[Rfam]
RNA sequence: GAUGGUAUGGCCCAUCACUGGCGAUUUACAGGAAUAGCCAGUAAACUACCCCGAGGUGCUUUGAUAGCAAUUGAUAGGUGCUGAACGUCGUGGGAGAAGGUCCGACAAGAUCGGAUCAUGU
Numbered sequence: 001g002a003u004g005g006u007a008u009g010g011c012c013c014a015u016c017a018c019u020g021g022c023g024a025u026u027u028a029c030a031g032g033a034a035u036a037g038c039c040a041g042u043a044a045a046c047u048a049c050c051c052c053g054a055g056g057u058g059c060u061u062u063g064a065u066a067g068c069a070a071u072u073g074a075u076a077g078g079u080g081c082u083g084a085a086c087g088u089c090g091u092g093g094g095a096g097a098a099g100g101u102c103c104g105a106c107a108a109g110a111u112c113g114g115a116u117c118a119u120g121u
Base pairs, nucleotide, nucleotide: 001016002015003014004013005012017042018041019040020039021038022037024035025034026033027032047120049093050092052090053089054088055082056081058079059078060077062074064072099117100116101115102114103113104112
RNA: Group II catalytic intron D1-D4-2